[Rfam]
RNA sequence: AGAAUUAGAGGGCGGAACGGGCAGCCGCCACCAUGUACAUUACGUACAGUAGGAGAUGUGGGAAUAGUCACCCCACCUGAUUCA
Numbered sequence: 001a002g003a004a005u006u007a008g009a010g011g012g013c014g015g016a017a018c019g020g021g022c023a024g025c026c027g028c029c030a031c032c033a034u035g036u037a038c039a040u041u042a043c044g045u046a047c048a049g050u051a052g053g054a055g056a057u058g059u060g061g062g063a064a065u066a067g068u069c070a071c072c073c074c075a076c077c078u079g080a081u082u083c084a
Stems, first nucleotide, its partner, number of pairs: 002083007011029005020069003031053001035047004058076005
skipping-rope RNA: an 84-nucleotide sequence.
By type it is a small RNA.
It is one of the family's seed sequences.